[Rfam]
RNA sequence: GUGGAGGGCCGGACGGCCGCUGCGGCGGGCAACCGCCGGAGAGGAAAGUCCGGACUCACUGAAGCAUCGGUGCCGGGUAACGCCCGGGCAGGGCAACCUGACGGAAAGCGCCACAGAAAACAGACCGCCGCCCAUCGGGCGGUAAGGGUGAAACGGUGGGGUAAGAGCCCACCGGGGGGCUGGCAACAGCGUCCGCAUGGCAAGCCCCACCGGGAGCAAUGCCGCAUAGGGACCCCGCGCGGGGCAUGAUCCCUUCGGGGAUAUCGCCGCAGGGCCGCUUCAGCCCGAGGGGUCCGGGUUGGCAGCUUGAGCCACAUGGCAACAUGUGGCCUAGAGGAAUGGUCGUCUGAGGAUGGGGUGACCCAUCCGACAACAGAAUCCGGCUUACAGGCCCUCCACGCAA
Numbered sequence: 001g002u003g004g005a006g007g008g009c010c011g012g013a014c015g016g017c018c019g020c021u022g023c024g025g026c027g028g029g030c031a032a033c034c035g036c037c038g039g040a041g042a043g044g045a046a047a048g049u050c051c052g053g054a055c056u057c058a059c060u061g062a063a064g065c066a067u068c069g070g071u072g073c074c075g076g077g078u079a080a081c082g083c084c085c086g087g088g089c090a091g092g093g094c095a096a097c098c099u100g101a102c103g104g105a106a107a108g109c110g111c112c113a114c115a116g117a118a119a120a121c122a123g124a125c126c127g128c129c130g131c132c133c134a135u136c137g138g139g140c141g142g143u144a145a146g147g148g149u150g151a152a153a154c155g156g157u158g159g160g161g162u163a164a165g166a167g168c169c170c171a172c173c174g175g176g177g178g179g180c181u182g183g184c185a186a187c188a189g190c191g192u193c194c195g196c197a198u199g200g201c202a203a204g205c206c207c208c209a210c211c212g213g214g215a216g217c218a219a220u221g222c223c224g225c226a227u228a229g230g231g232a233c234c235c236c237g238c239g240c241g242g243g244g245c246a247u248g249a250u251c252c253c254u255u256c257g258g259g260g261a262u263a264u265c266g267c268c269g270c271a272g273g274g275c276c277g278c279u280u281c282a283g284c285c286c287g288a289g290g291g292g293u294c295c296g297g298g299u300u301g302g303c304a305g306c307u308u309g310a311g312c313c314a315c316a317u318g319g320c321a322a323c324a325u326g327u328g329g330c331c332u333a334g335a336g337g338a339a340u341g342g343u344c345g346u347c348u349g350a351g352g353a354u355g356g357g358g359u360g361a362c363c364c365a366u367c368c369g370a371c372a373a374c375a376g377a378a379u380c381c382g383g384c385u386u387a388c389a390g391g392c393c394c395u396c397c398a399c400g401c402a403a
Base pairs, nucleotide, nucleotide: 001399002398003397004396005395006394007393008392009391010390011388012347013346014345015344016343017342018341020041021040023038024037025036026035027034028033046386047385048384050383051382052381053380054379055216056215057214063280064279068212069211070210071209072208073087074086075085076084077083088102089100090099091098092097103207104206108205109204110201111200112199125147126146127143128142129141130140131139132138133137155173156172157171158170159169160168174196175194176193177192179190180189181188182187220304221303222302223301230295231294232293233292234291235290272286273285274284275283311330312329313328314327315326316325317324318323